[Rfam]
RNA: sodF sRNA
Organism: Streptomyces sp. WM4235
RNA sequence: CCGUCCGCCCCGUGAUCGUCUUCUCAACCUUCACGUGCGGGCGUGUCCAACGGAAAGCCCCCGCGAGGACGUGACUCGCGGGGGCUUUUC
Numbered sequence: 001c002c003g004u005c006c007g008c009c010c011c012g013u014g015a016u017c018g019u020c021u022u023c024u025c026a027a028c029c030u031u032c033a034c035g036u037g038c039g040g041g042c043g044u045g046u047c048c049a050a051c052g053g054a055a056a057g058c059c060c061c062c063g064c065g066a067g068g069a070c071g072u073g074a075c076u077c078g079c080g081g082g083g084g085c086u087u088u089u090c
Stems, first nucleotide, its partner, number of pairs: 002043002005040004010035001012034004018028002052090016